[Rfam]
Nucleotides: 130
Base pairs, nucleotide, nucleotide: 003128004127005126006125007124008123009122010119017029018028019027031108032107033097034096035049036048037047038046044095045094053072054071077093078092079091080090081089099111100110101109
Number, partner (000 for none) and nucleotide at each position: 001000a002000u003128u004127c005126g006125u007124g008123c009122u010119c011000c012000g013000g014000g015000g016000u017029c018028g019027g020000u021000g022000u023000a024000a025000g026000u027019c028018c029017g030000a031108a032107c033097c034096g035049g036048c037047g038046g039000u040000g041000a042000c043000a044095g045094u046038c047037c048036g049035c050000g051000a052000c053072c054071c055000g056000u057000c058000g059000c060000a061000g062000c063000a064000a065000u066000g067000c068000g069000a070000c071054g072053g073000u074000u075000g076000a077093u078092c079091c080090g081089g082000u083000g084000a085000a086000a087000c088000u089081c090080c091079g092078g093077a094045a095044c096034c097033g098000a099111c100110g101109g102000u103000g104000a105000a106000a107032g108031u109101c110100c111099g112000g113000a114000u115000g116000g117000g118000a119010g120000g121000c122009a123008g124007c125006a126005c127004g128003g129000g130000c
Rfam assigns this 130-nucleotide RNA sequence from Micropruina glycogenica to the family "FMN riboswitch aptamer (RFN element)". NCBI's taxonomy places the organism under Bacteria, Actinomycetota, Actinomycetes, Propionibacteriales, Micropruina.